Record summary
Rfam assigns this 116-nucleotide RNA sequence from Peptoniphilus sp. ING2-D1G to the family "FMN riboswitch aptamer (RFN element)". NCBI's taxonomy places the organism under Bacteria, Bacillati, Tissierellia, Tissierellales, Peptoniphilus.
RNA sequence: AAACAUCUUCAGGGUAGGGUGAAAGUCCCAACCGGCGGUAAAGUCCGCGACUCCUACGGGAUUGAACUUGUGAAAUUCAAGUACCGACAGUAAAGUCUGGAUGGAAGAAGAUUAAU
Numbered sequence: 001a002a003a004c005a006u007c008u009u010c011a012g013g014g015u016a017g018g019g020u021g022a023a024a025g026u027c028c029c030a031a032c033c034g035g036c037g038g039u040a041a042a043g044u045c046c047g048c049g050a051c052u053c054c055u056a057c058g059g060g061a062u063u064g065a066a067c068u069u070g071u072g073a074a075a076u077u078c079a080a081g082u083a084c085c086g087a088c089a090g091u092a093a094a095g096u097c098u099g100g101a102u103g104g105a106a107g108a109a110g111a112u113u114a115a116u
Stems, first nucleotide, its partner, number of pairs: 005112006017029003031096002033086002035048004043084002052061002066082005088099003